RNA sequence: CGGUAGCUGGACCCACCGGGCUCAACCGAGCAAACCCAGCCUCUCUCGUCCGCACAGGACAACAACCCACCUCACGGG
Numbered sequence: 001c002g003g004u005a006g007c008u009g010g011a012c013c014c015a016c017c018g019g020g021c022u023c024a025a026c027c028g029a030g031c032a033a034a035c036c037c038a039g040c041c042u043c044u045c046u047c048g049u050c051c052g053c054a055c056a057g058g059a060c061a062a063c064a065a066c067c068c069a070c071c072u073c074a075c076g077g078g
Base pairs, nucleotide, nucleotide: 001018002017003016004015006040007039008038009037010036020031021030022029048060049059050058051057